RNA sequence: GAAGCGCGAACCAGGCGGCGGCGAAAACCGCGCAAGACCUGGAGCGGACGGCCGCGGGACCGUCCUGCA
Numbered sequence: 001g002a003a004g005c006g007c008g009a010a011c012c013a014g015g016c017g018g019c020g021g022c023g024a025a026a027a028c029c030g031c032g033c034a035a036g037a038c039c040u041g042g043a044g045c046g047g048a049c050g051g052c053c054g055c056g057g058g059a060c061c062g063u064c065c066u067g068c069a
Base pairs, nucleotide, nucleotide: 011042012041013040014039015038018031019030020029021028046065047064048063049062050061051060053058
Transposase-2 RNA: a 69-nucleotide sequence from Bifidobacterium longum. Taxonomically the source falls in Bifidobacterium longum subsp. longum (Bacteria, Actinomycetota, Bifidobacteriaceae, Bifidobacterium). It is annotated as a small RNA. The sequence is in the family's curated seed alignment.